[Rfam]
RNA sequence: CUACAUUGAACUCAGAUUUCGUCAGCAGCGGGCUGUGAUGAUUAUGAACAAGUUCGUUGUCGACGAAACCUGCAUACUGUGUGG
Numbered sequence: 001c002u003a004c005a006u007u008g009a010a011c012u013c014a015g016a017u018u019u020c021g022u023c024a025g026c027a028g029c030g031g032g033c034u035g036u037g038a039u040g041a042u043u044a045u046g047a048a049c050a051a052g053u054u055c056g057u058u059g060u061c062g063a064c065g066a067a068a069c070c071u072g073c074a075u076a077c078u079g080u081g082u083g084g
Base pairs, nucleotide, nucleotide: 001084002083003082004081005080006079013072014071015070017068018067019066020065021064030055031054032053033052034051
RNA: mir-981 microRNA precursor family